[Rfam]
RNA sequence: GGAAGGGACACACUCCCGGUGGAGUGGCCGGACUUCAAACCCGGAGUGGGUCGCUGGCGAUCCUGUGUGGGUUCGACUCCCACUCUCUUCC
Numbered sequence: 001g002g003a004a005g006g007g008a009c010a011c012a013c014u015c016c017c018g019g020u021g022g023a024g025u026g027g028c029c030g031g032a033c034u035u036c037a038a039a040c041c042c043g044g045a046g047u048g049g050g051u052c053g054c055u056g057g058c059g060a061u062c063c064u065g066u067g068u069g070g071g072u073u074c075g076a077c078u079c080c081c082a083c084u085c086u087c088u089u090c091c
Stems, first nucleotide, its partner, number of pairs: 001091008011026006028044004048063004068082004
The record is a 91-nucleotide RNA from Variovorax sp. PBL-E5, which matches "Selenocysteine transfer RNA" in Rfam. NCBI's taxonomy places the organism under Bacteria, Pseudomonadati, Betaproteobacteria, Comamonadaceae, Variovorax. Clan: tRNA clan. The match comes from Rfam's covariance-model search (70 bits). For this family Rfam cites "Eukaryotic selenocysteine tRNA has the 9/4 secondary structure" (Mizutani and Goto, FEBS Lett, 2000).